Background
The record is a 98-nucleotide RNA sequence from Gossypium hirsutum, which matches "MIR7486 microRNA precursor family" in Rfam. Rfam 15.1 lists 10,132 matches to the family in 36 species. Pairs were carried over by alignment from the consensus structure, which was predicted with RNAalifold.
RNA sequence: CUCAAGGAAGCGCUUUGCCUACGUGGACAGAAAACGCUUCCUUGAGGGCGCGCUUUCUGUCCAUUUUCUGUCCACGUAGGCAAAGCGCUUCCUUGAAG
Numbered sequence: 001c002u003c004a005a006g007g008a009a010g011c012g013c014u015u016u017g018c019c020u021a022c023g024u025g026g027a028c029a030g031a032a033a034a035c036g037c038u039u040c041c042u043u044g045a046g047g048g049c050g051c052g053c054u055u056u057c058u059g060u061c062c063a064u065u066u067u068c069u070g071u072c073c074a075c076g077u078a079g080g081c082a083a084a085g086c087g088c089u090u091c092c093u094u095g096a097a098g
Stems, first nucleotide, its partner, number of pairs: 002096020023075012036062001